About this RNA
A member of the RNA family "Small nucleolar SNORD12/SNORD106" from Chloroceryle aenea, 89 nucleotides long. Clan: SNORD12 clan. The match comes from Rfam's covariance-model search (68 bits). Pairs were carried over by alignment from the consensus structure, which was predicted with RNAalifold.
RNA sequence: GCUGGUGUAAGUGAUGACAGUUUUUUCCCCAUCAGAGCGGCAGUGUUGAUUUCUCGCUGUUCAGGCCAGAUCGUGUCUGACGCACCAGC
Numbered sequence: 001g002c003u004g005g006u007g008u009a010a011g012u013g014a015u016g017a018c019a020g021u022u023u024u025u026u027c028c029c030c031a032u033c034a035g036a037g038c039g040g041c042a043g044u045g046u047u048g049a050u051u052u053c054u055c056g057c058u059g060u061u062c063a064g065g066c067c068a069g070a071u072c073g074u075g076u077c078u079g080a081c082g083c084a085c086c087a088g089c
Stems, first nucleotide, its partner, number of pairs: 001089008
Dot-bracket structure: ((((((((.........................................................................))))))))